[Rfam]
The record is a 78-nucleotide sequence from Dipodomys ordii, which matches "mir-103/107 microRNA precursor family" in Rfam.
Lineage of the source: Eukaryota > Teleostomi > Euteleostomi > Boreoeutheria > Dipodomys.
The match comes from Rfam's covariance-model search (88 bits).
From the family's description: This family consists of the mammalian microRNA (miRNA) precursors mir-103 and mir107. Animal miRNAs are transcribed as ~70nt precursors and subsequently processed by the Dicer enzyme to give a ~22nt product. In this case the mature sequence comes from the 3' arm of the precursor. The extents of the hairpin precursors are not generally known and are estimated based on hairpin prediction.
RNA sequence: CUCUGCCCUCGGCUUCUCUACAGUGCUGCCUUGUUGCAUGUGGAUCAAGCAGCAUUGUACAGGGCUAUGAGGACAGCG
Numbered sequence: 001c002u003c004u005g006c007c008c009u010c011g012g013c014u015u016c017u018c019u020a021c022a023g024u025g026c027u028g029c030c031u032u033g034u035u036g037c038a039u040g041u042g043g044a045u046c047a048a049g050c051a052g053c054a055u056u057g058u059a060c061a062g063g064g065c066u067a068u069g070a071g072g073a074c075a076g077c078g
Stems, first nucleotide, its partner, number of pairs: 014064004019059010030049004